[Rfam]
RNA sequence: AUCGGUUUGAAAGUACAGACCCAUUUAUGAUAAGCAAGUUUAAAGCAGUUCACCAUUUAGUGUUAUCCACGAUACCCCUUCAUUGCGAAUUCCUUCUAAUUAGUUCCCAUAAGUACGUACAAAUUUAAAACAAACCUUAAUCUGCCUUAUGGCAACUCUAAAAUUUAAAGGAUUUCAAAUGUCUAAUACAAUGACUGGUUUAGUAAAAUGGUUUAACAAUGAUAAAGGCUUCGGUUUCAUUUCACCAAAAGAUGGCAGCAAAGACGUGUUCGUCCAUUAUUCUGCAAUCCAAGGUACUGAUUUCAAAAGCUUAGAUGAAGGCCAAGAAGUAUCUUUCACCAUCGAAGAUGGUGCUAAAGGCCCAGCAGCUGCUAACGUAGUUGCUCUGUAAGAGUUCACUGUUAUUUUGAUAAAUAAACUAUACUGUUUAUUUAAAUAAAUACAAAGAAUCUUAAAACCUCGCUUAUGCGGGGUUUUUUACG
Numbered sequence: 001a002u003c004g005g006u007u008u009g010a011a012a013g014u015a016c017a018g019a020c021c022c023a024u025u026u027a028u029g030a031u032a033a034g035c036a037a038g039u040u041u042a043a044a045g046c047a048g049u050u051c052a053c054c055a056u057u058u059a060g061u062g063u064u065a066u067c068c069a070c071g072a073u074a075c076c077c078c079u080u081c082a083u084u085g086c087g088a089a090u091u092c093c094u095u096c097u098a099a100u101u102a103g104u105u106c107c108c109a110u111a112a113g114u115a116c117g118u119a120c121a122a123a124u125u126u127a128a129a130a131c132a133a134a135c136c137u138u139a140a141u142c143u144g145c146c147u148u149a150u151g152g153c154a155a156c157u158c159u160a161a162a163a164u165u166u167a168a169a170g171g172a173u174u175u176c177a178a179a180u181g182u183c184u185a186a187u188a189c190a191a192u193g194a195c196u197g198g199u200u201u202a203g204u205a206a207a208a209u210g211g212u213u214u215a216a217c218a219a220u221g222a223u224a225a226a227g228g229c230u231u232c233g234g235u236u237u238c239a240u241u242u243c244a245c246c247a248a249a250a251g252a253u254g255g256c257a258g259c260a261a262a263g264a265c266g267u268g269u270u271c272g273u274c275c276a277u278u279a280u281u282c283u284g285c286a287a288u289c290c291a292a293g294g295u296a297c298u299g300a301u302u303u304c305a306a307a308a309g310c311u312u313a314g315a316u317g318a319a320g321g322c323c324a325a326g327a328a329g330u331a332u333c334u335u336u337c338a339c340c341a342u343c344g345a346a347g348a349u350g351g352u353g354c355u356a357a358a359g360g361c362c363c364a365g366c367a368g369c370u371g372c373u374a375a376c377g378u379a380g381u382u383g384c385u386c387u388g389u390a391a392g393a394g395u396u397c398a399c400u401g402u403u404a405u406u407u408u409g410a411u412a413a414a415u416a417a418a419c420u421a422u423a424c425u426g427u428u429u430a431u432u433u434a435a436a437u438a439a440a441u442a443c444a445a446a447g448a449a450u451c452u453u454a455a456a457a458c459c460u461c462g463c464u465u466a467u468g469c470g471g472g473g474u475u476u477u478u479u480a481c482g
Stems, first nucleotide, its partner, number of pairs: 004021006028247002031244001033242002045237001048236001050234002053228002056225001062223004071214002074212003081181004092171004097167003103131003144153003183198003187194001251343005263271002276330003281326001283324002285321001288315002291312003298307001349364003353361003365389004369383001371381003454477010
A member of the RNA family "cspA thermoregulator" from Moellerella wisconsensis, 482 nucleotides long. For this family Rfam cites "The cspA mRNA is a thermosensor that modulates translation of the cold-shock protein CspA" (Giuliodori et al., Mol Cell, 2010). Pairs were carried over by alignment from the consensus structure, which is taken from published work. The family's RNA type in Rfam is RNA thermoregulator. A search with the family's covariance model found it, with a score of 222 bits. The family has 15 seed sequences and 2,094 matches in Rfam 15.1.